[Rfam]
RNA sequence: CGUAUGGUGGCCAACUUCGGGUUGGUUAGCGAUACGGCCUUAUUUUGAGGU
Numbered sequence: 001c002g003u004a005u006g007g008u009g010g011c012c013a014a015c016u017u018c019g020g021g022u023u024g025g026u027u028a029g030c031g032a033u034a035c036g037g038c039c040u041u042a043u044u045u046u047g048a049g050g051u
Stems, first nucleotide, its partner, number of pairs: 001036005007030002011025006
The record is a 51-nucleotide RNA, which matches "L31-Gammaproteobacteria ribosomal protein leader" in Rfam. The base pairs follow the family's consensus structure, which is taken from published work. It is annotated as a cis-regulatory leader. For this family Rfam cites "Discovery of 20 novel ribosomal leader candidates in bacteria and archaea" (Eckert and Weinberg, BMC Microbiol, 2020).